[Rfam]
RNA: PyrG leader
RNA sequence: GGGCUCUUAAAAAAGCUAUCUUUGUAAAUUAUACAUUUACAGCUCCCUUUCAACUUGUUUGGAAGGGAGCUUUCUUAUUUU
Numbered sequence: 001g002g003g004c005u006c007u008u009a010a011a012a013a014a015g016c017u018a019u020c021u022u023u024g025u026a027a028a029u030u031a032u033a034c035a036u037u038u039a040c041a042g043c044u045c046c047c048u049u050u051c052a053a054c055u056u057g058u059u060u061g062g063a064a065g066g067g068a069g070c071u072u073u074c075u076u077a078u079u080u081u
Stems, first nucleotide, its partner, number of pairs: 042070012